[Rfam]
RNA sequence: GAAAUAAGGGCGUACGGGGAAUGCCUAGGCUCUCAGAGACGAUGAAGGACGUGGUAAGCUGCGAAAAGUCAGGGGGAGGUGCAAACAACCGUUAUAUCCCUGAAUGUCCGAAUGGGGCAACCCACAUGGUUGAAGACCAUGUACCCGCAAGGGAGGUAACCCGGGGAACUGAAACAUCUAAGUACCCGGAGGAGGAGAAAAUAAUUUAAUGAUUCCGCAAGUAGUGGCGAGCGAACGCGGAAUAGCCCAAACCAUUACGAUACGUCGUAGUGGGGUUGUAGGACUUGAAUAAUCGAAGAUCAUUUAACCGGAACAGUUUUGGAAAAGCUGACCAUAGGGGGUGAAAGUCCCGUACGGGAAGAAUGAUUUAGAGUCGAGUAUCCUGAGUAGGGCGGGGCCGGAGAAACCCUGUCUGAAUUUGGCGGCACCAUCCGCUAAGGCUAAAUACUCCUGAGAGACCGAUAGCGAACAAGUACCGUGAGGGAAAGGUGAAAAGAACCGCGAGAAGCGGAGUGAAAAGACCCUGAAACCGUGCGCCUACAAG
Number, nucleotide and partner (000 for none) at each position: 001g000002a000003a000004a000005u000006a000007a000008g539009g538010g537011c536012g535013u534014a533015c532016g531017g530018g000019g000020a000021a000022u000023g524024c489025c488026u000027a000028g460029g459030c457031u456032c455033u454034c453035a452036g451037a449038g448039a000040c155041g000042a000043u000044g000045a000046a000047g109048g108049a107050c063051g062052u061053g000054g000055u000056a000057a000058g000059c000060u000061g052062c051063g050064a000065a000066a000067a000068g000069u103070c102071a101072g100073g099074g098075g097076g000077a000078g090079g089080u088081g000082c000083a000084a000085a000086c000087a000088a080089c079090c078091g000092u000093u000094a000095u000096a000097u075098c074099c073100c072101u071102g070103a069104a000105u000106g000107u049108c048109c047110g000111a000112a000113u000114g123115g122116g121117g000118c000119a000120a000121c116122c115123c114124a142125c141126a140127u139128g138129g137130u136131u000132g000133a000134a000135g000136a130137c129138c128139a127140u126141g125142u124143a000144c153145c152146c151147g000148c000149a000150a000151g146152g145153g144154a000155g040156g000157u000158a000159a000160c191161c189162c188163g187164g186165g185166g000167a000168a000169c000170u000171g178172a177173a000174a000175c000176a000177u172178c171179u000180a000181a000182g000183u000184a000185c165186c164187c163188g162189g161190a000191g160192g000193a000194g000195g000196a000197g000198a000199a000200a000201a210202u209203a000204a000205u000206u000207u000208a000209a202210u201211g000212a000213u445214u241215c240216c239217g238218c237219a000220a000221g000222u000223a000224g232225u231226g000227g000228c000229g000230a000231g225232c224233g000234a000235a000236c000237g218238c217239g216240g215241a214242a000243u000244a442245g441246c440247c439248c000249a000250a000251a000252c273253c272254a271255u270256u269257a268258c267259g000260a000261u000262a000263c000264g000265u000266c000267g258268u257269a256270g255271u254272g253273g252274g000275g000276u000277u000278g000279u000280a384281g383282g382283a000284c378285u377286u376287g375288a374289a000290u000291a000292a000293u000294c000295g000296a369297a000298g368299a367300u366301c365302a364303u363304u362305u361306a000307a000308c357309c356310g355311g000312a000313a000314c330315a329316g328317u327318u000319u326320u000321g000322g000323a000324a000325a000326a319327g317328c316329u315330g314331a000332c000333c337334a000335u000336a000337g333338g000339g351340g350341g349342u000343g000344a000345a000346a000347g000348u000349c341350c340351c339352g000353u000354a000355c310356g309357g308358g000359a000360a000361g305362a304363a303364u302365g301366a300367u299368u298369u296370a000371g000372a000373g000374u288375c287376g286377a285378g284379u000380a000381u000382c282383c281384u280385g000386a000387g000388u000389a000390g414391g413392g412393c411394g410395g409396g408397g407398c000399c000400g000401g000402a000403g000404a000405a000406a000407c397408c396409c395410u394411g393412u392413c391414u390415g000416a000417a000418u000419u000420u000421g436422g435423c434424g433425g432426c000427a000428c000429c000430a000431u000432c425433c424434g423435c422436u421437a000438a000439g247440g246441c245442u244443a000444a000445a213446u000447a000448c038449u037450c000451c036452u035453g034454a033455g032456a031457g030458a000459c029460c028461g000462a000463u000464a000465g000466c000467g000468a000469a000470c000471a000472a000473g000474u000475a000476c483477c482478g000479u000480g000481a000482g477483g476484g000485a000486a000487a000488g025489g024490u000491g000492a000493a000494a000495a000496g000497a000498a000499c511500c510501g509502c508503g000504a000505g000506a000507a000508g502509c501510g500511g499512a000513g000514u000515g000516a000517a000518a000519a000520g000521a000522c000523c000524c023525u000526g000527a000528a000529a000530c017531c016532g015533u014534g013535c012536g011537c010538c009539u008540a000541c000542a000543a000544g000
This 544-nucleotide part of an RNA from Lewinella sp. W8 belongs to the Rfam family "Bacterial large subunit ribosomal RNA".
Taxonomically the source falls in Lewinella (Bacteria, Bacteroidota, Saprospiria, Saprospirales).